[Rfam]
RNA sequence: AGUUUGAGGCAGAAGCCUGUAGCACAAGCACUCAUGGUGCUGCCUGUCAGAUUCCAAUGAAUCUGCAAAUUCUGCU
Numbered sequence: 001a002g003u004u005u006g007a008g009g010c011a012g013a014a015g016c017c018u019g020u021a022g023c024a025c026a027a028g029c030a031c032u033c034a035u036g037g038u039g040c041u042g043c044c045u046g047u048c049a050g051a052u053u054c055c056a057a058u059g060a061a062u063c064u065g066c067a068a069a070u071u072c073u074g075c076u
Stems, first nucleotide, its partner, number of pairs: 015044001017042001021076004026071002028040003048065007